[Rfam]
RNA sequence: AAAAAGGGCUUGUGCCGUGUAUGGCACAUUGCGGGUCUCCCUUGUGGAGGACUGCAGUGCGGAAUCGAUAUCAAGAGAUUUCGAAAGCAUAAUUUUUGUAAACUGGGCUGCUAGAGAUCGAUGGUCUGGGCGCCCAA
Numbered sequence: 001a002a003a004a005a006g007g008g009c010u011u012g013u014g015c016c017g018u019g020u021a022u023g024g025c026a027c028a029u030u031g032c033g034g035g036u037c038u039c040c041c042u043u044g045u046g047g048a049g050g051a052c053u054g055c056a057g058u059g060c061g062g063a064a065u066c067g068a069u070a071u072c073a074a075g076a077g078a079u080u081u082c083g084a085a086a087g088c089a090u091a092a093u094u095u096u097u098g099u100a101a102a103c104u105g106g107g108c109u110g111c112u113a114g115a116g117a118u119c120g121a122u123g124g125u126c127u128g129g130g131c132g133c134c135c136a137a
Stems, first nucleotide, its partner, number of pairs: 008088004013026005027059008036048003060083007105135004110131003114127001116126004
The family of this 137-nucleotide sequence from Xenopus tropicalis is "U11 spliceosomal RNA". The family is grouped with related families in Rfam's "U1 clan". The match comes from Rfam's covariance-model search (106 bits). The family's consensus secondary structure is taken from published work. It is annotated as a spliceosomal small nuclear RNA.